[Rfam]
RNA sequence: UUGAAAAUUUUGAAAACUUCAACUUGCAGACUUGAAGAAUUUGAAGACAUCAACUUGCAGACUUGGAGAAUUUGAAGAAUUCAACU
Numbered sequence: 001u002u003g004a005a006a007a008u009u010u011u012g013a014a015a016a017c018u019u020c021a022a023c024u025u026g027c028a029g030a031c032u033u034g035a036a037g038a039a040u041u042u043g044a045a046g047a048c049a050u051c052a053a054c055u056u057g058c059a060g061a062c063u064u065g066g067a068g069a070a071u072u073u074g075a076a077g078a079a080u081u082c083a084a085c086u
Base pairs, nucleotide, nucleotide: 001084002083003082004081005080009076010075011074012073013072014071017068018067019066020065021064025059026058027057028056032053033052034051035050037048